Rfam assigns this 80-nucleotide RNA to the family "SL669 non-coding RNA". A reference for the family is Romero-Lopez and Berzal-Herranz (2020), "The Role of the RNA-RNA Interactome in the Hepatitis C Virus Life Cycle", Int J Mol Sci.
RNA sequence: ACGACCCCCGGCGUCGAUCCCGGAAUUUGGGUAAGGUCAUCGAUACCCUAACGUGUGGGUUCGCCGAUCUCAUGGGGUAC
Numbered sequence: 001a002c003g004a005c006c007c008c009c010g011g012c013g014u015c016g017a018u019c020c021c022g023g024a025a026u027u028u029g030g031g032u033a034a035g036g037u038c039a040u041c042g043a044u045a046c047c048c049u050a051a052c053g054u055g056u057g058g059g060u061u062c063g064c065c066g067a068u069c070u071c072a073u074g075g076g077g078u079a080c
Stems, first nucleotide, its partner, number of pairs: 003080001004078005009066005016060001018058002021055002029048005036041001